[Rfam]
RNA sequence: AUAACGAUAAGAGAUACGCUCACCACCGUUAUCUCACUUCGCGCAGUAAUGUCUUGGGAGGAUACAUAUCUCUGGCGCGCUUUUAGCUGCUGCCGCUCAGUAUUAGCAAAACCACAAAUGCACACUGAGCAAUGAGAUCACGUCGCGAUCACUAAAAAAGCAAGGCUUUGCGGCCUUGUUUUUUUUU
Numbered sequence: 001a002u003a004a005c006g007a008u009a010a011g012a013g014a015u016a017c018g019c020u021c022a023c024c025a026c027c028g029u030u031a032u033c034u035c036a037c038u039u040c041g042c043g044c045a046g047u048a049a050u051g052u053c054u055u056g057g058g059a060g061g062a063u064a065c066a067u068a069u070c071u072c073u074g075g076c077g078c079g080c081u082u083u084u085a086g087c088u089g090c091u092g093c094c095g096c097u098c099a100g101u102a103u104u105a106g107c108a109a110a111a112c113c114a115c116a117a118a119u120g121c122a123c124a125c126u127g128a129g130c131a132a133u134g135a136g137a138u139c140a141c142g143u144c145g146c147g148a149u150c151a152c153u154a155a156a157a158a159a160g161c162a163a164g165g166c167u168u169u170g171c172g173g174c175c176u177u178g179u180u181u182u183u184u185u186u187u
Stems, first nucleotide, its partner, number of pairs: 003187002006184001011035006042147003051063004067140001068138004074094003077090003096129006159180008